[Rfam]
This 81-nucleotide sequence from Vibrio paucivorans belongs to the Rfam family "antisense RNA of dnaA mRNA". Lineage of the source: Bacteria > Pseudomonadota > Gammaproteobacteria > Vibrionaceae > Vibrio. Pairs were carried over by alignment from the consensus structure, which was predicted with RNAfold. On this family, see Dadzie et al., PLoS One 2013: "Identification and characterization of a cis-encoded antisense RNA associated with the replication process of Salmonella enterica serovar Typhi".

RNA sequence: UUUAGCAUUCGGUUUGUUAUCCACAAUCGCAUUACCUACUGCAUGCAAUAAGUGGGUUUUACCUAGACCAGUACCACCGUA
Numbered sequence: 001u002u003u004a005g006c007a008u009u010c011g012g013u014u015u016g017u018u019a020u021c022c023a024c025a026a027u028c029g030c031a032u033u034a035c036c037u038a039c040u041g042c043a044u045g046c047a048a049u050a051a052g053u054g055g056g057u058u059u060u061a062c063c064u065a066g067a068c069c070a071g072u073a074c075c076a077c078c079g080u081a
Stems, first nucleotide, its partner, number of pairs: 005042003009038001011036003016032002020029001052077003056074002061072002